[Rfam]
RNA: ArsR-gov region gene B
RNA sequence: UCAGUUAAAGAUAGUUCCAUUCCAGAUCUGAGUACCAACUCAGUGUUGGAUGUAAAAAAGCCCGAUUACCCAUCGGGCUUUUUUAC
Numbered sequence: 001u002c003a004g005u006u007a008a009a010g011a012u013a014g015u016u017c018c019a020u021u022c023c024a025g026a027u028c029u030g031a032g033u034a035c036c037a038a039c040u041c042a043g044u045g046u047u048g049g050a051u052g053u054a055a056a057a058a059a060g061c062c063c064g065a066u067u068a069c070c071c072a073u074c075g076g077g078c079u080u081u082u083u084u085a086c
Stems, first nucleotide, its partner, number of pairs: 021050004026046002030041003055083006062076005